[Rfam]
The record is a 252-nucleotide RNA sequence from Thiorhodovibrio frisius, which matches "Group II catalytic intron D1-D4-6" in Rfam. It scores 90 bits against the family's covariance model. Group II introns are found in rRNA, tRNA and mRNA of organelles in fungi, plants and protists, and also in mRNA in bacteria.
RNA sequence: UAAUUCCCACGAGAGGCGGUUAACCACCGCGCUCUGUAGCGAACCUGCGUGCAUAUUUCCGCAAGGGUAUGUAUGAAGCCAGGUGUAGCGAGUGUGCAGGCCGCGUGACUGAGUCCCGAAAAGAUAGUUGUUGUGGUCCAUGAGGAUAACCGCGCGCAAGCACGCGAAAGCCGACGGUUUCAAGGCACCGGAAGGCUGUGGUCUUUGGCGCGUUAAGGUGAGCGGCGAAGACACCACCGGGAUCGCCGAGCG
Numbered sequence: 001u002a003a004u005u006c007c008c009a010c011g012a013g014a015g016g017c018g019g020u021u022a023a024c025c026a027c028c029g030c031g032c033u034c035u036g037u038a039g040c041g042a043a044c045c046u047g048c049g050u051g052c053a054u055a056u057u058u059c060c061g062c063a064a065g066g067g068u069a070u071g072u073a074u075g076a077a078g079c080c081a082g083g084u085g086u087a088g089c090g091a092g093u094g095u096g097c098a099g100g101c102c103g104c105g106u107g108a109c110u111g112a113g114u115c116c117c118g119a120a121a122a123g124a125u126a127g128u129u130g131u132u133g134u135g136g137u138c139c140a141u142g143a144g145g146a147u148a149a150c151c152g153c154g155c156g157c158a159a160g161c162a163c164g165c166g167a168a169a170g171c172c173g174a175c176g177g178u179u180u181c182a183a184g185g186c187a188c189c190g191g192a193a194g195g196c197u198g199u200g201g202u203c204u205u206u207g208g209c210g211c212g213u214u215a216a217g218g219u220g221a222g223c224g225g226c227g228a229a230g231a232c233a234c235c236a237c238c239g240g241g242a243u244c245g246c247c248g249a250g251c252g
Base pairs, nucleotide, nucleotide: 012035013034014033015032017029018028019027020026021221023219024218037091039089040088043084044083045082047079048075049074050073051072052071053070054069055068058067059066060065111244113243114242115241116240117239118238133237134236135235136234137233170196171195172194175190176189177188178187201232202231203230204229205228206227207226209224210223211222